[Rfam]
RNA sequence: CACUUUCAUCAUGGCAUGCAUCGUACUUGCUGCUUGGCUUUACAGGAAAUCGAGCAGCAAGGGACAUGAAUGCAGAACUGUCAAACAG
Numbered sequence: 001c002a003c004u005u006u007c008a009u010c011a012u013g014g015c016a017u018g019c020a021u022c023g024u025a026c027u028u029g030c031u032g033c034u035u036g037g038c039u040u041u042a043c044a045g046g047a048a049a050u051c052g053a054g055c056a057g058c059a060a061g062g063g064a065c066a067u068g069a070a071u072g073c074a075g076a077a078c079u080g081u082c083a084a085a086c087a088g
Stems, first nucleotide, its partner, number of pairs: 004085003008081001014073004024063001026061001027057005032051001034049002038045002
Dot-bracket structure: ...(((.(.....((((......(.(((((((.((..((....))..)).).)))))...).)......)))).......).)))...

Background:
This 88-nucleotide RNA sequence from Lathyrus oleraceus belongs to the Rfam family "MIR2086 microRNA precursor family". NCBI's taxonomy places the organism under Eukaryota, Embryophyta, rosids, Fabaceae, Lathyrus.